Small nucleolar RNA snoR26: a 91-nucleotide RNA sequence from Digitaria exilis. Taxonomically the source falls in Digitaria (Eukaryota, Poaceae, Paniceae, Anthephorinae).

RNA sequence: AGAGCAUCAGUGAUGUUACAUCCAUAUUAUCAUCCUUGCACUUUGAGCUGCGCGGUGAAGAAAUCAUUGGGGAAUGUUUUCUGAGAUGCUC
Numbered sequence: 001a002g003a004g005c006a007u008c009a010g011u012g013a014u015g016u017u018a019c020a021u022c023c024a025u026a027u028u029a030u031c032a033u034c035c036u037u038g039c040a041c042u043u044u045g046a047g048c049u050g051c052g053c054g055g056u057g058a059a060g061a062a063a064u065c066a067u068u069g070g071g072g073a074a075u076g077u078u079u080u081c082u083g084a085g086a087u088g089c090u091c
Stems, first nucleotide, its partner, number of pairs: 002091007
Dot-bracket structure: .(((((((............................................................................)))))))
For this family Rfam cites "Multiple snoRNA gene clusters from Arabidopsis" (Brown et al., RNA, 2001). By type it is a C/D-box small nucleolar RNA. A search with the family's covariance model found it, with a score of 79 bits.